[Rfam]
The family of this 48-nucleotide RNA from Jiangella asiatica is "L31-Actinobacteria ribosomal protein leader". The family is grouped with related families in Rfam's "Ribosomal Protein L31 Leader clan". The base pairs follow the family's consensus structure, which is taken from published work.
RNA sequence: UUGGUUCCGGUUCACGGUGCGGCAUCCCGCCGUUCCGACCCGGCGGCC
Numbered sequence: 001u002u003g004g005u006u007c008c009g010g011u012u013c014a015c016g017g018u019g020c021g022g023c024a025u026c027c028c029g030c031c032g033u034u035c036c037g038a039c040c041c042g043g044c045g046g047c048c
Stems, first nucleotide, its partner, number of pairs: 003048003007043004015037003019033005